[Rfam]
RNA sequence: ACCAGGCGGGUGGUGGUCUUGUGCAGGAAAUCCUGUCUGGCGUGGCGGACCUUGCGGUACGCGGCCGCGACCCUGCGCUUGGCCUUGCGGCGGUUGUUCGAGCCUUUCACCUUGCGUGCCAUGCGUCGUUGGUAACGCUUGAGGUUGCGGGCUUUGCGCUCCAGGUGGCGGGGGUUGGCGAUCUUCUCGCCCGUGGACAGGGUCGCGAAGUCCUUCACUCCCAGGUCCACACCCACCUCAGAACCGGUGUCCGGUACGGGGUCGGGGUCGUCGGUGUCCACGGAGAAGGUCGCAUACCAGCGCCCGUCCGCCUCACGCGAGAUGACCACCGUGGUCGGGUCCAGGGCGGCCAGGUCUGUCUCGGGCCAGGACCAGGCCACCUUCAGCGGCCUCUGGUGUUUGGCCAGGAACAGCGCACCGUCGCGGAGGCGAAACGCGCUGCGGGUGUAGUGCGCCGACUGCCGACCGGACCGGUUCUUGAACCGGGGGUAGCGGGCGCGUUGGGCGAAGAAGUUCGCGAACGCGCUGUGUUGGUGGCGCAGGGUCUGCUGCAAGGGAACCGAGGACACCUCGGACAAGAACGCCAGCUCAGGGG
Number, nucleotide and partner (000 for none) at each position: 001a000002c016003c015004a014005g000006g000007c000008g000009g000010g000011u000012g000013g000014u004015g003016g002017u580018c579019u578020u577021g576022u575023g033024c000025a031026g000027g000028a000029a000030a000031u025032c000033c023034u000035g000036u000037c000038u000039g000040g068041c067042g000043u000044g000045g062046c061047g060048g000049a058050c057051c056052u000053u000054g000055c000056g051057g050058u049059a000060c047061g046062c045063g000064g000065c000066c000067g041068c040069g146070a145071c144072c143073c000074u141075g140076c000077g138078c137079u000080u000081g000082g133083c132084c131085u000086u000087g129088c128089g127090g126091c125092g124093g000094u000095u121096g120097u118098u000099c116100g115101a112102g111103c000104c000105u000106u000107u000108c000109a000110c000111c102112u101113u000114g000115c100116g099117u000118g097119c000120c096121a095122u000123g000124c092125g091126u090127c089128g088129u087130u000131g084132g083133u082134a000135a000136c000137g078138c077139u000140u075141g074142a000143g072144g071145u070146u069147g000148c000149g213150g212151g211152c210153u000154u208155u207156g206157c205158g204159c000160u202161c201162c200163a000164g198165g000166u197167g000168g000169c000170g000171g192172g191173g190174g000175u000176u000177g000178g188179c000180g186181a185182u000183c000184u000185u181186c180187u000188c178189g000190c173191c172192c171193g000194u000195g000196g000197a166198c164199a000200g162201g161202g160203u000204c158205g157206c156207g155208a154209a000210g152211u151212c150213c149214u000215u000216c000217a000218c000219u000220c574221c573222c000223a571224g570225g569226u568227c000228c000229a000230c267231a000232c266233c265234c264235a000236c261237c260238u259239c258240a000241g000242a000243a255244c254245c253246g000247g000248u000249g000250u000251c000252c000253g245254g244255u243256a000257c000258g239259g238260g237261g236262u000263c000264g234265g233266g232267g230268u000269c565270g000271u563272c562273g561274g560275u559276g000277u557278c556279c000280a000281c551282g550283g549284a000285g547286a000287a545288g000289g000290u542291c000292g000293c000294a000295u536296a535297c534298c533299a532300g531301c530302g529303c000304c000305c525306g524307u523308c000309c000310g350311c349312c348313u346314c345315a000316c000317g000318c000319g341320a340321g000322a000323u337324g336325a335326c334327c000328a000329c000330c000331g000332u000333g000334g326335u325336c324337g323338g000339g000340u320341c319342c000343a000344g000345g314346g313347c000348g312349g311350c310351c000352a000353g000354g000355u000356c000357u000358g471359u470360c469361u000362c468363g467364g000365g000366c000367c461368a460369g459370g000371a000372c000373c454374a000375g000376g451377c450378c000379a000380c000381c445382u444383u443384c000385a000386g442387c441388g440389g439390c438391c000392u436393c000394u000395g000396g000397u431398g430399u429400u428401u427402g000403g424404c423405c000406a000407g419408g000409a000410a000411c000412a000413g000414c000415g000416c000417a000418c000419c407420g000421u000422c000423g404424c403425g000426g000427a401428g400429g399430c398431g397432a000433a000434a000435c000436g392437c000438g390439c389440u388441g387442c386443g383444g382445g381446u000447g000448u000449a000450g377451u376452g000453c000454g373455c000456c000457g000458a000459c369460u368461g367462c000463c000464g000465a000466c000467c363468g362469g360470a359471c358472c000473g000474g516475u000476u000477c513478u512479u511480g000481a000482a000483c000484c000485g000486g000487g000488g502489g501490u500491a000492g499493c498494g000495g000496g000497c000498g493499c492500g490501u489502u488503g000504g000505g000506c000507g000508a000509a000510g000511a479512a478513g477514u000515u000516c474517g000518c000519g000520a000521a000522c000523g307524c306525g305526c000527u000528g000529u302530g301531u300532u299533g298534g297535u296536g295537g000538c000539g000540c000541a000542g290543g000544g000545u287546c000547u285548g000549c283550u282551g281552c000553a000554a000555g000556g278557g277558a000559a275560c274561c273562g272563a271564g000565g269566a000567c000568a226569c225570c224571u223572c000573g221574g220575a022576c021577a020578a019579g018580a017581a000582c594583g000584c592585c000586a000587g000588c000589u000590c000591a000592g584593g000594g582595g000